The family of this 94-nucleotide sequence from Thalassobacter sp. 16PALIMAR09 is "Rhodo-rpoB RNA". The family's RNA type in Rfam is cis-regulatory element. Lineage of the source: Bacteria > Alphaproteobacteria > Rhodobacterales > Roseobacteraceae > Thalassobacter. The match comes from Rfam's covariance-model search (57 bits).
[Rfam]
RNA sequence: CAGACGGAAGCGAGCCCCUGGGAAGGCACGCAAGAAUUGUCUGGCUCUUUUCGUUUCGCAAGCGGCAUGACGUGGCGCCCCAACCACGCCUUGC
Numbered sequence: 001c002a003g004a005c006g007g008a009a010g011c012g013a014g015c016c017c018c019u020g021g022g023a024a025g026g027c028a029c030g031c032a033a034g035a036a037u038u039g040u041c042u043g044g045c046u047c048u049u050u051u052c053g054u055u056u057c058g059c060a061a062g063c064g065g066c067a068u069g070a071c072g073u074g075g076c077g078c079c080c081c082a083a084c085c086a087c088g089c090c091u092u093g094c
Base pairs, nucleotide, nucleotide: 001043002042003041004040005039010031011030012029014027015026016025065094066093067092069090071088072087073086074085075084